Shown here is an 84-nucleotide sequence from Manduca sexta, a member of the family "mir-3338 microRNA precursor family".
RNA sequence: CGAGUGUUUCAAAGCAAACACAGUAGUGUGCAAUGCUAAAGUUCCAACAUGCAUGUACUUACUUUGUUUGUUCUGAAAUGUUCU
Number, nucleotide and partner (000 for none) at each position: 001c000002g083003a082004g081005u000006g079007u078008u077009u076010c075011a074012a000013a072014g071015c070016a069017a068018a067019c066020a065021c000022a063023g062024u061025a060026g059027u000028g058029u057030g056031c055032a054033a000034u053035g052036c051037u000038a000039a000040a000041g000042u000043u000044c000045c000046a000047a000048c000049a000050u000051g036052c035053a034054u032055g031056u030057a029058c028059u026060u025061a024062c023063u022064u000065u020066g019067u018068u017069u016070g015071u014072u013073c000074u011075g010076a009077a008078a007079u006080g000081u004082u003083c002084u000

Rfam's curators put it in the seed alignment.